[Rfam]
A member of the RNA family "SAM riboswitch aptamer (S box leader)" from Ureibacillus endophyticus, 117 nucleotides long.

RNA sequence: CCUUUAUCCAGAGUGGCGGAGGGAAUAGGCCCUAUGAUGCCCGGCAACCAGUGAAUACAUAAAGUGUUUACUAAGGUGCUAAUUCCUACAGAUUUUGAUUGAUCUGACAGAUAAGGG
Numbered sequence: 001c002c003u004u005u006a007u008c009c010a011g012a013g014u015g016g017c018g019g020a021g022g023g024a025a026u027a028g029g030c031c032c033u034a035u036g037a038u039g040c041c042c043g044g045c046a047a048c049c050a051g052u053g054a055a056u057a058c059a060u061a062a063a064g065u066g067u068u069u070a071c072u073a074a075g076g077u078g079c080u081a082a083u084u085c086c087u088a089c090a091g092a093u094u095u096u097g098a099u100u101g102a103u104c105u106g107a108c109a110g111a112u113a114a115g116g117g
Stems, first nucleotide, its partner, number of pairs: 001117008013042001015041003021032003026088004043080004048076002050072008084109001089106006
Dot-bracket structure: ((((((((....(.(((...(((..[[[[)))......))))((((.((((((((((.......))))))))..))))))...(]]]]((((((......))))))..)))))))))